[Rfam]
RNA sequence: GAUCUUGCGUCUACGGCCUGCGCGCCCUUGCGUAAGGCUGAUGGCUGGUGGCUGGAGCCACCGGCCU
Numbered sequence: 001g002a003u004c005u006u007g008c009g010u011c012u013a014c015g016g017c018c019u020g021c022g023c024g025c026c027c028u029u030g031c032g033u034a035a036g037g038c039u040g041a042u043g044g045c046u047g048g049u050g051g052c053u054g055g056a057g058c059c060a061c062c063g064g065c066c067u
Base pairs, nucleotide, nucleotide: 014040015039016038017037018036022031023030043066044065045064046063047062048061049060050059051058052057
Dot-bracket structure: .............(((((...((......))....)))))..((((((((((....)))))))))).
Description: This 67-nucleotide sequence from Azotobacter vinelandii belongs to the Rfam family "Pseudomonas sRNA P26". A reference for the family is Livny et al. (2006), "Identification of 17 Pseudomonas aeruginosa sRNAs and prediction of sRNA-encoding genes in 10 diverse pathogens using the bioinformatic tool sRNAPredict2", Nucleic Acids Res. The organism belongs to Azotobacter vinelandii, within Bacteria. About the family: This small RNA (sRNA) was computationally identified in the genome of the opportunistic pathogen Pseudomonas aeruginosa and its expression verified by northern blot analysis. It is one of the family's seed sequences.